Small nucleolar RNA SNORD83: a 76-nucleotide RNA sequence from Sapayoa aenigma. For this family Rfam cites "Characterisation of the U83 and U84 small nucleolar RNAs: two novel 2'-O-ribose methylation guide RNAs that lack complementarities to ribosomal RNAs" (Jady and Kiss, Nucleic Acids Res, 2000). By type it is a C/D-box small nucleolar RNA.
RNA sequence: GCCAAAUAAUGUCAACUAGAUGGCAUUAGCUCUCAAGGCAAAGAUGACCUUCAUCUAUCACGCCAUUCUGAUGGCU
Numbered sequence: 001g002c003c004a005a006a007u008a009a010u011g012u013c014a015a016c017u018a019g020a021u022g023g024c025a026u027u028a029g030c031u032c033u034c035a036a037g038g039c040a041a042a043g044a045u046g047a048c049c050u051u052c053a054u055c056u057a058u059c060a061c062g063c064c065a066u067u068c069u070g071a072u073g074g075c076u
Stems, first nucleotide, its partner, number of pairs: 001075004029039003